RNA sequence: CGACUCAAGCGGCUUUCAACGGCGCUAUCAACCGAACUGUGUGUCGCGUGUUGAUAUGUUGUUUGAAUGCCCCUUGAAUCG
Numbered sequence: 001c002g003a004c005u006c007a008a009g010c011g012g013c014u015u016u017c018a019a020c021g022g023c024g025c026u027a028u029c030a031a032c033c034g035a036a037c038u039g040u041g042u043g044u045c046g047c048g049u050g051u052u053g054a055u056a057u058g059u060u061g062u063u064u065g066a067a068u069g070c071c072c073c074u075u076g077a078a079u080c081g
Stems, first nucleotide, its partner, number of pairs: 005077005011071003015067003018063006026056007033048002

Record summary:
mir-90 microRNA precursor family: an 81-nucleotide sequence from Caenorhabditis japonica. The organism belongs to Caenorhabditis, within Eukaryota. Pairs were carried over by alignment from the consensus structure, which was predicted with RNAalifold.